[Rfam]
RNA sequence: AAUUUAAUAAAAGCGCCAGAACUUAAUUUGGAAUAUGGUUUAAGUUGACGAGGUUGGGGAGUAUCGAAUAUUCGGCGGGUGCCCCACGGUAUUGCACUACCGUAAAAGGUUAGUUAAAACUUAAAAGUGAUUUUAAGGACAAAACUACUAGGUGUAAAA
Numbered sequence: 001a002a003u004u005u006a007a008u009a010a011a012a013g014c015g016c017c018a019g020a021a022c023u024u025a026a027u028u029u030g031g032a033a034u035a036u037g038g039u040u041u042a043a044g045u046u047g048a049c050g051a052g053g054u055u056g057g058g059g060a061g062u063a064u065c066g067a068a069u070a071u072u073c074g075g076c077g078g079g080u081g082c083c084c085c086a087c088g089g090u091a092u093u094g095c096a097c098u099a100c101c102g103u104a105a106a107a108g109g110u111u112a113g114u115u116a117a118a119a120c121u122u123a124a125a126a127g128u129g130a131u132u133u134u135a136a137g138g139a140c141a142a143a144a145c146u147a148c149u150a151g152g153u154g155u156a157a158a159a
Stems, first nucleotide, its partner, number of pairs: 020046007029037001055086005064075004087102005107149002111147002120137007
glmS glucosamine-6-phosphate activated ribozyme aptamer: a 159-nucleotide RNA sequence from Clostridium tarantellae. This entry contains a glucosamine-6-phosphate activated ribozyme that is found in the mRNA for GlmS. GlmS is an enzyme that uses fructose-6-phosphate and glutamine to generate glucosamine-6-phosphate. The ribozyme catalyses self cleavage of the glmS mRNA that is thought to regulate GlmS activity. Rfam classes the family as a riboswitch. Pairs were carried over by alignment from the consensus structure, which is taken from published work. It scores 114 bits against the family's covariance model.